[Rfam]
RNA sequence: GCUGUUUUAGCUCAGUGGUAGAGCUUCUGAUAUUUGAUCAGGUGGUCGGUAGUUCGAUUCCGCCGAACAGCA
Numbered sequence: 001g002c003u004g005u006u007u008u009a010g011c012u013c014a015g016u017g018g019u020a021g022a023g024c025u026u027c028u029g030a031u032a033u034u035u036g037a038u039c040a041g042g043u044g045g046u047c048g049g050u051a052g053u054u055c056g057a058u059u060c061c062g063c064c065g066a067a068c069a070g071c072a
Stems, first nucleotide, its partner, number of pairs: 001071007010024004026042005048064003052060001
The record is a 72-nucleotide sequence from [Pythium] brassicae, which matches "tRNA" in Rfam. The family's consensus secondary structure is taken from published work.